[Rfam]
RNA sequence: GUUGUCGGAUUCAUUUCAAUCUAUGUAUAUUGGUAUGGUUUGGGGUGGAAUUUUGUUCAAAUUCUACUCUAAUCCACCUCAACACAUGUACAUUAAUGUGAAUCCGACU
Numbered sequence: 001g002u003u004g005u006c007g008g009a010u011u012c013a014u015u016u017c018a019a020u021c022u023a024u025g026u027a028u029a030u031u032g033g034u035a036u037g038g039u040u041u042g043g044g045g046u047g048g049a050a051u052u053u054u055g056u057u058c059a060a061a062u063u064c065u066a067c068u069c070u071a072a073u074c075c076a077c078c079u080c081a082a083c084a085c086a087u088g089u090a091c092a093u094u095a096a097u098g099u100g101a102a103u104c105c106g107a108c109u
Stems, first nucleotide, its partner, number of pairs: 004108011016096001018094003022090005028084001030082003036076003040072004045067003